[Rfam]
RNA sequence: CCCACUGUUCCGUCAGUGGUAGCCUACGGGCACGUGCAUUACGAGUAAUUGUUUUGUACGAAGCUGCCCGGACAAAGUAACCCACCCGAAAGGGGAAGCAAAAGUCGCGAGGUGGAUGCAACGACCGCCAGCAUCAGGCGGUUAGGGAG
Numbered sequence: 001c002c003c004a005c006u007g008u009u010c011c012g013u014c015a016g017u018g019g020u021a022g023c024c025u026a027c028g029g030g031c032a033c034g035u036g037c038a039u040u041a042c043g044a045g046u047a048a049u050u051g052u053u054u055u056g057u058a059c060g061a062a063g064c065u066g067c068c069c070g071g072a073c074a075a076a077g078u079a080a081c082c083c084a085c086c087c088g089a090a091a092g093g094g095g096a097a098g099c100a101a102a103a104g105u106c107g108c109g110a111g112g113u114g115g116a117u118g119c120a121a122c123g124a125c126c127g128c129c130a131g132c133a134u135c136a137g138g139c140g141g142u143u144a145g146g147g148a149g
Stems, first nucleotide, its partner, number of pairs: 002019006028069005033060006041052004085094003098119003105112002124142006

Overview:
This 149-nucleotide sequence from Bacteroides thetaiotaomicron belongs to the Rfam family "Group II catalytic intron D1-D4-7". Its family is annotated with Group II intron splicing in the Gene Ontology. The organism belongs to Bacteroides, within Bacteria.